[Rfam]
RNA: U5 spliceosomal RNA
Organism: Hevea brasiliensis
Nucleotides: 118
Base pairs, nucleotide, nucleotide: 003076004075007066008065009064010063011062012061013060015058016057017056026052027051028050029049032046033045096118097117098116099115100114101113
Number, partner (000 for none) and nucleotide at each position: 001000a002000u003076c004075a005000u006000g007066c008065a009064g010063u011062g012061a013060g014000a015058a016057c017056a018000a019000a020000g021000c022000g023000a024000a025000c026052u027051a028050u029049u030000c031000c032046u033045u034000c035000a036000c037000c038000u039000u040000u041000c042000a043000c044000u045033a046032a047000a048000u049029a050028a051027u052026a053000a054000c055000a056017u057016g058015u059000g060013c061012u062011c063010g064009u065008u066007g067000c068000a069000g070000a071000u072000a073000g074000c075004u076003g077000c078000a079000u080000a081000c082000g083000c084000u085000a086000a087000u088000u089000u090000u091000u092000a093000g094000a095000g096118g097117g098116u099115u100114c101113g102000c103000c104000u105000u106000u107000a108000u109000a110000a111000u112000g113101u114100g115099a116098a117097c118096c